[Rfam]
RNA: 6A RNA
RNA sequence: AGAUAUGUUCAUAUAGCAGUGAACAGAAUAAUCAAAAGAAAUGCUAUUCAAGA
Number, nucleotide and partner (000 for none) at each position: 001a000002g000003a000004u000005a000006u025007g024008u023009u022010c021011a020012u000013a000014u046015a045016g044017c043018a000019g000020u011021g010022a009023a008024c007025a006026g000027a000028a000029u000030a000031a000032u000033c000034a000035a000036a000037a000038g000039a000040a000041a000042u000043g017044c016045u015046a014047u000048u000049c000050a000051a000052g000053a000